[Rfam]
RNA: MIR473 microRNA precursor family
Organism: Tripterygium wilfordii
RNA sequence: AUUGUUCACUCUCCCUCAAGGCUUCCAGCCUAGCUAGCUAACUUCAUUGGCUCAAGGUGCAUGGAAGCCUUGUGGGGGAGAGUGAACACAAG
Number, nucleotide and partner (000 for none) at each position: 001a000002u000003u000004g000005u000006u085007c084008a083009c082010u081011c080012u079013c078014c077015c076016u000017c074018a071019a070020g069021g068022c067023u066024u065025c064026c063027a062028g000029c000030c000031u000032a000033g000034c000035u000036a000037g000038c000039u000040a000041a000042c000043u000044u000045c000046a000047u000048u000049g000050g000051c000052u000053c000054a000055a000056g000057g000058u000059g000060c000061a000062u027063g026064g025065a024066a023067g022068c021069c020070u019071u018072g000073u000074g017075g000076g015077g014078g013079a012080g011081a010082g009083u008084g007085a006086a000087c000088a000089c000090a000091a000092g000